[Rfam]
RNA sequence: UAGAUUUUUUAGCUUCGGUAUCGGUAUCUCUCAUCGUCAUUUGGACUUCUCCUAAUUACCUCGGUUAGUUUCGCCGAGGUUUUU
Numbered sequence: 001u002a003g004a005u006u007u008u009u010u011a012g013c014u015u016c017g018g019u020a021u022c023g024g025u026a027u028c029u030c031u032c033a034u035c036g037u038c039a040u041u042u043g044g045a046c047u048u049c050u051c052c053u054a055a056u057u058a059c060c061u062c063g064g065u066u067a068g069u070u071u072c073g074c075c076g077a078g079g080u081u082u083u084u
Base pairs, nucleotide, nucleotide: 058080059079060078061077062076063075064074065073
RNA: Photosynthesis regulatory RNA1